Source information: This 90-nucleotide RNA from Branchiostoma belcheri belongs to the Rfam family "mir-2060 microRNA precursor family".
[Rfam]
RNA sequence: GUUUGCCUGUGUGUGGAUGUUGUUCAGCACCAGGGACAGGUGUGUUUGUGUGUCGAUGGUGUUCAGCAUCAAGGACAGUUGUGUUUAUGC
Numbered sequence: 001g002u003u004u005g006c007c008u009g010u011g012u013g014u015g016g017a018u019g020u021u022g023u024u025c026a027g028c029a030c031c032a033g034g035g036a037c038a039g040g041u042g043u044g045u046u047u048g049u050g051u052g053u054c055g056a057u058g059g060u061g062u063u064c065a066g067c068a069u070c071a072a073g074g075a076c077a078g079u080u081g082u083g084u085u086u087a088u089g090c
Stems, first nucleotide, its partner, number of pairs: 004081002007078004018071002021068004026063007034051001036049005
Pairs were carried over by alignment from the consensus structure, which was predicted with RNAalifold. The source organism's lineage runs through Eukaryota, Metazoa, Deuterostomia, Chordata and Branchiostoma.